[Rfam]
Shown here is a 79-nucleotide sequence from Oncorhynchus kisutch, a member of the family "mir-130 microRNA precursor family". For this family Rfam cites "Identification of tissue-specific microRNAs from mouse" (Lagos-Quintana et al., Curr Biol, 2002). Pairs were carried over by alignment from the consensus structure, which was predicted with PFOLD.

RNA sequence: UGUUGUCCGGAGCCCUUUUACUGGUGUACUACUGUGAAAUCAGAUGAGCAGUGCAAUAUUAAAAGGGCAUUGGCUGACC
Numbered sequence: 001u002g003u004u005g006u007c008c009g010g011a012g013c014c015c016u017u018u019u020a021c022u023g024g025u026g027u028a029c030u031a032c033u034g035u036g037a038a039a040u041c042a043g044a045u046g047a048g049c050a051g052u053g054c055a056a057u058a059u060u061a062a063a064a065g066g067g068c069a070u071u072g073g074c075u076g077a078c079c
Stems, first nucleotide, its partner, number of pairs: 002079001005075001007073004012068008022058002025055006